[Rfam]
The family of this 101-nucleotide RNA sequence from Scabiosa tschiliensis is "Plastid-rps12 3UTR RNA". Rfam's curators write: Plastid rpl20 is a non-coding RNA (ncRNA) recognised in plastids. It was found in the three prime untranslated region (3UTR) of rps12 gene, its 3UTR location sugest a role in transcript maduration. Taxonomically the source falls in Scabiosa (Eukaryota, Spermatophyta, Gunneridae, Pentapetalae). By type it is a cis-regulatory element. On this family, see Richter et al., Plant Commun 2023: "Retrograde signaling in plants: A critical review focusing on the GUN pathway and beyond".
RNA sequence: GGUUUCCAUUGGUGCAAACCCAAUCAUCUCAAUUUAAGAUUAAGAUGAGAAGCAAUUUUCCAUUGGUAGCAAACGAUUAUCCAUUAAGCGGAGGAAGUCUU
Number, nucleotide and partner (000 for none) at each position: 001g000002g000003u000004u000005u000006c000007c000008a000009u023010u022011g021012g020013u000014g000015c000016a000017a000018a000019c000020c012021c011022a010023a009024u000025c000026a000027u000028c000029u000030c000031a000032a000033u000034u000035u000036a000037a000038g000039a000040u000041u000042a000043a000044g000045a000046u000047g000048a000049g000050a000051a000052g000053c000054a000055a000056u000057u000058u093059u092060c091061c090062a084063u083064u000065g081066g080067u079068a078069g077070c000071a000072a000073a000074c000075g000076a000077u069078u068079a067080u066081c065082c000083a063084u062085u000086a000087a000088g000089c000090g061091g060092a059093g058094g000095a000096a000097g000098u000099c000100u000101u000